[Rfam]
RNA sequence: ACAACUCUGGAGAGCGGUGCGGGCAUCCAGGCAUGCCGGCGCACCCACCGAAGGGGCACCCGCAAGGCAUCGGCGAACGCCGGCUGGUUGCGGAAUCUCUCAGGUACAAGGACAGAUGGGGGCGA
Numbered sequence: 001a002c003a004a005c006u007c008u009g010g011a012g013a014g015c016g017g018u019g020c021g022g023g024c025a026u027c028c029a030g031g032c033a034u035g036c037c038g039g040c041g042c043a044c045c046c047a048c049c050g051a052a053g054g055g056g057c058a059c060c061c062g063c064a065a066g067g068c069a070u071c072g073g074c075g076a077a078c079g080c081c082g083g084c085u086g087g088u089u090g091c092g093g094a095a096u097c098u099c100u101c102a103g104g105u106a107c108a109a110g111g112a113c114a115g116a117u118g119g120g121g122g123c124g125a
Base pairs, nucleotide, nucleotide: 002120006116007115008114009113016045017044018043019042020041021040047105048104049103050101051100054099055098056097061092062091063090064089065088
RNA: Glycine riboswitch aptamer